[Rfam]
The record is a 124-nucleotide sequence from Loigolactobacillus rennini, which matches "FMN riboswitch aptamer (RFN element)" in Rfam.

RNA sequence: AAUUUUCUUCGAGGCAGGGUGUAAUUCCCGAUCGGCGGUGAAAUAAAGUCCGCAAGCCGUGUUAACGGUGGAUUCAGUGUGAAGCUGAAACCGACAGUGAAAGUCUGGAUGAGAGAAGAAACUU
Numbered sequence: 001a002a003u004u005u006u007c008u009u010c011g012a013g014g015c016a017g018g019g020u021g022u023a024a025u026u027c028c029c030g031a032u033c034g035g036c037g038g039u040g041a042a043a044u045a046a047a048g049u050c051c052g053c054a055a056g057c058c059g060u061g062u063u064a065a066c067g068g069u070g071g072a073u074u075c076a077g078u079g080u081g082a083a084g085c086u087g088a089a090a091c092c093g094a095c096a097g098u099g100a101a102a103g104u105c106u107g108g109a110u111g112a113g114a115g116a117a118g119a120a121a122c123u124u
Stems, first nucleotide, its partner, number of pairs: 004121007017029003031104002033093002035053004048091002056069003073089005095107003
Dot-bracket structure: ...(((((((......(((.......))).[[((((((.........[[))))..(((........)))...(((((.......)))))]])).(((.....]]))).......)))))))...

The organism belongs to Loigolactobacillus rennini, within Bacteria. The family's consensus secondary structure is taken from published work. The match comes from Rfam's covariance-model search (106 bits).